[Rfam]
RNA sequence: CCCACUGAGCCAUCUCACCAGCCCUGCAAUCAACUCUUAAUAGUAGUUAAACAAAUAGGGCUGGAGAGAUGGCUCAGUGGU
Numbered sequence: 001c002c003c004a005c006u007g008a009g010c011c012a013u014c015u016c017a018c019c020a021g022c023c024c025u026g027c028a029a030u031c032a033a034c035u036c037u038u039a040a041u042a043g044u045a046g047u048u049a050a051a052c053a054a055a056u057a058g059g060g061c062u063g064g065a066g067a068g069a070u071g072g073c074u075c076a077g078u079g080g081u
Stems, first nucleotide, its partner, number of pairs: 002080015018064007